[Rfam]
RNA sequence: UGCCAGGUGGGUCAUCGGCCCCGGUCCGCUGACGGGCAACCCUUCCACCGCGACGGGGUGCCCCGGGUGACGACCUGGCCCCGCCGGCGCGGCGGGACAAGCGCGGCCA
Numbered sequence: 001u002g003c004c005a006g007g008u009g010g011g012u013c014a015u016c017g018g019c020c021c022c023g024g025u026c027c028g029c030u031g032a033c034g035g036g037c038a039a040c041c042c043u044u045c046c047a048c049c050g051c052g053a054c055g056g057g058g059u060g061c062c063c064c065g066g067g068u069g070a071c072g073a074c075c076u077g078g079c080c081c082c083g084c085c086g087g088c089g090c091g092g093c094g095g096g097a098c099a100a101g102c103g104c105g106g107c108c109a
Stems, first nucleotide, its partner, number of pairs: 004034001007033002010030003017026002035062003040058003044053002078098001080096007

This 109-nucleotide sequence from Streptomyces sp. TLI_235 belongs to the Rfam family "SAM (S-adenosyl methionine) riboswitch aptamer". The literature on the family includes a 2008 paper in RNA by Weinberg et al., "The aptamer core of SAM-IV riboswitches mimics the ligand-binding site of SAM-I riboswitches". It scores 53 bits against the family's covariance model.